Small nucleolar RNA SNORD10: a 127-nucleotide sequence from Gopherus agassizii. The source organism's lineage runs through Eukaryota, Metazoa, Tetrapoda, Testudinoidea and Gopherus. On this family, see Huttenhofer et al., EMBO J 2001: "RNomics: an experimental approach that identifies 201 candidates for novel, small, non-messenger RNAs in mouse".
[Rfam]
RNA sequence: GUUCAGUGAUGAUUCCCCAUGCGUGUCAGCUGAUCCCAGUGCUGCCUGGUGCCCCCUGCUAGGCGUUCUGCCGUCCGGGCCUGGCACAGGGGCUUCUGGGCGUGAUCAGAACUAUCCAACUGAGAAC
Numbered sequence: 001g002u003u004c005a006g007u008g009a010u011g012a013u014u015c016c017c018c019a020u021g022c023g024u025g026u027c028a029g030c031u032g033a034u035c036c037c038a039g040u041g042c043u044g045c046c047u048g049g050u051g052c053c054c055c056c057u058g059c060u061a062g063g064c065g066u067u068c069u070g071c072c073g074u075c076c077g078g079g080c081c082u083g084g085c086a087c088a089g090g091g092g093c094u095u096c097u098g099g100g101c102g103u104g105a106u107c108a109g110a111a112c113u114a115u116c117c118a119a120c121u122g123a124g125a126a127c
Base pairs, nucleotide, nucleotide: 001127002126003125004124045091046090047089049087050086051085052084053083